[Rfam]
Nucleotides: 104
Stems, first nucleotide, its partner, number of pairs: 006099008020033004035084003038080002042078003048071009
Number, partner (000 for none) and nucleotide at each position: 001000a002000u003000g004000a005000g006099a007098u008097u009096g010095g011094c012093g013092a014000g015000a016000g017000a018000g019000a020033c021032c022031u023030a024000a025000a026000a027000a028000u029000u030023u031022a032021g033020g034000a035084g036083c037082c038080g039079a040000a041000g042078a043077a044076g045000c046000a047000a048071u049070u050069u051068a052067a053066a054065a055064a056063u057000a058000g059000c060000c061000a062000a063056a064055u065054u066053u067052u068051u069050a070049a071048a072000g073000a074000a075000a076044c077043u078042u079039u080038c081000a082037g083036g084035c085000a086000a087000a088000g089000a090000u091000a092013u093012c094011g095010u096009u097008a098007a099006u100000u101000g102000a103000u104000g
Background
This 104-nucleotide RNA from Romboutsia lituseburensis belongs to the Rfam family "Glycine riboswitch aptamer". NCBI's taxonomy places the organism under Bacteria, Bacillati, Clostridia, Peptostreptococcales, Romboutsia lituseburensis. A search with the family's covariance model found it, with a score of 60 bits.